Overview:
Rfam assigns this 507-nucleotide sequence from Sphaerimonospora thailandensis to the family "Saccharopolyspora sRNA 350". The family has 2 seed sequences and 1,170 matches in Rfam 15.1.
[Rfam]
RNA sequence: UUCGCGGUGAAGGCCCAGUCGGGCGCGUCCUCGGUCAGCAUCCGGCCGCCGAGGUGGUCGCCGCCGCCCAGGACCUCGGUCACCGUGUCGGCGCCGUACGGACCGGGCUCGAUCUUGUUGACCUUGCCGUGCGCGAUCAGGAUCACCCGGUCGGUGGGCAUGCCCGCGGCGGCGAGCACGUCGCCCGGCUCGAACUCCCGCUGGCUGAACCUCCCGGCCAGCGCCUCCAGCGUGUCGGUGUCGUCGAAAUCGCGCAGCGCGGGCAGCUCGCACAGCUCGGCGGGGAUGACGUCGAUGUCCGCUCCCGUGGAGACGAACGUGAUCCGCCCGUCCCCCAGUGUGUAGCUGAGCCGCCGGUUGACCCGGUAGGUGCCGCCCAGCACCUGGACCCAGGGGAGCACGCGCAGCAGGUGCCGCGAGGUGAUCUCCUGCAUCUGGGGCACCGACUUGGUGGUCGUCGCCAGGUUCCGCGCGGCGGCGGUGCCGAGGCUCAGCUGCGGCUGCCCG
Numbered sequence: 001u002u003c004g005c006g007g008u009g010a011a012g013g014c015c016c017a018g019u020c021g022g023g024c025g026c027g028u029c030c031u032c033g034g035u036c037a038g039c040a041u042c043c044g045g046c047c048g049c050c051g052a053g054g055u056g057g058u059c060g061c062c063g064c065c066g067c068c069c070a071g072g073a074c075c076u077c078g079g080u081c082a083c084c085g086u087g088u089c090g091g092c093g094c095c096g097u098a099c100g101g102a103c104c105g106g107g108c109u110c111g112a113u114c115u116u117g118u119u120g121a122c123c124u125u126g127c128c129g130u131g132c133g134c135g136a137u138c139a140g141g142a143u144c145a146c147c148c149g150g151u152c153g154g155u156g157g158g159c160a161u162g163c164c165c166g167c168g169g170c171g172g173c174g175a176g177c178a179c180g181u182c183g184c185c186c187g188g189c190u191c192g193a194a195c196u197c198c199c200g201c202u203g204g205c206u207g208a209a210c211c212u213c214c215c216g217g218c219c220a221g222c223g224c225c226u227c228c229a230g231c232g233u234g235u236c237g238g239u240g241u242c243g244u245c246g247a248a249a250u251c252g253c254g255c256a257g258c259g260c261g262g263g264c265a266g267c268u269c270g271c272a273c274a275g276c277u278c279g280g281c282g283g284g285g286a287u288g289a290c291g292u293c294g295a296u297g298u299c300c301g302c303u304c305c306c307g308u309g310g311a312g313a314c315g316a317a318c319g320u321g322a323u324c325c326g327c328c329c330g331u332c333c334c335c336c337a338g339u340g341u342g343u344a345g346c347u348g349a350g351c352c353g354c355c356g357g358u359u360g361a362c363c364c365g366g367u368a369g370g371u372g373c374c375g376c377c378c379a380g381c382a383c384c385u386g387g388a389c390c391c392a393g394g395g396g397a398g399c400a401c402g403c404g405c406a407g408c409a410g411g412u413g414c415c416g417c418g419a420g421g422u423g424a425u426c427u428c429c430u431g432c433a434u435c436u437g438g439g440g441c442a443c444c445g446a447c448u449u450g451g452u453g454g455u456c457g458u459c460g461c462c463a464g465g466u467u468c469c470g471c472g473c474g475g476c477g478g479c480g481g482u483g484c485c486g487a488g489g490c491u492c493a494g495c496u497g498c499g500g501c502u503g504c505c506c507g
Base pairs, nucleotide, nucleotide: 006390007389008388011385012384016380018328021325022324024321025320026319027318028316029315035313036312039309040308041307045305048302049301051299052298054233055232058229060227063224064223065111066110067107068106075101077100078099082097083096085094086093117222118221119220120219122217123216126213129210130209133205134204136202140198141197148192149191153189155187156186157185158184159183161178162177165174166173167172234296235295236294237293240290241289242288243287244286245285250282253279254278256277257276258275259271260270261269329342330341331340353377355375356374357373361371362370363369391431392430393429394428395427396426397425399423400422401421403418404417405416407415437476440473443470445468446467447465448464449463450462451461452460477506478505480502481501482500484499487496488495
A search with the family's covariance model found it, with a score of 161 bits. NCBI's taxonomy places the organism under Bacteria, Bacillati, Actinomycetota, Streptosporangiales, Sphaerimonospora. Pairs were carried over by alignment from the consensus structure, which was predicted with RNAfold. By type it is an antisense RNA.